The family of this 85-nucleotide RNA sequence from Hevea brasiliensis is "small nucleolar RNA snoR114". By type it is a C/D-box small nucleolar RNA. The family's consensus secondary structure was predicted with RNAalifold. The match comes from Rfam's covariance-model search (67 bits).

RNA sequence: GAGCGGUGAUGACGACUGUGCUACUGUGACGGUUUGGUCUGUCACGAUCAUCUGAAUUCAGAUGAUAAAUCGCACGACUGAGCUC
Numbered sequence: 001g002a003g004c005g006g007u008g009a010u011g012a013c014g015a016c017u018g019u020g021c022u023a024c025u026g027u028g029a030c031g032g033u034u035u036g037g038u039c040u041g042u043c044a045c046g047a048u049c050a051u052c053u054g055a056a057u058u059c060a061g062a063u064g065a066u067a068a069a070u071c072g073c074a075c076g077a078c079u080g081a082g083c084u085c
Stems, first nucleotide, its partner, number of pairs: 001085004